[Rfam]
RNA sequence: UCUUUAGCAUAAAUAUGCCCCAUGUAAUAUUUGGGACAUACUUAUGCUAAAA
Numbered sequence: 001u002c003u004u005u006a007g008c009a010u011a012a013a014u015a016u017g018c019c020c021c022a023u024g025u026a027a028u029a030u031u032u033g034g035g036a037c038a039u040a041c042u043u044a045u046g047c048u049a050a051a052a
Stems, first nucleotide, its partner, number of pairs: 006048007014040003019035003022031001
Shown here is a 52-nucleotide RNA from Tursiops truncatus, a member of the family "mir-1302 microRNA precursor family". The family's consensus secondary structure was predicted with WAR. The organism belongs to Tursiops, within Eukaryota. Gene Ontology terms of the family: RISC complex and miRNA-mediated post-transcriptional gene silencing. Rfam 15.1 lists 16,160 matches to the family in 135 species.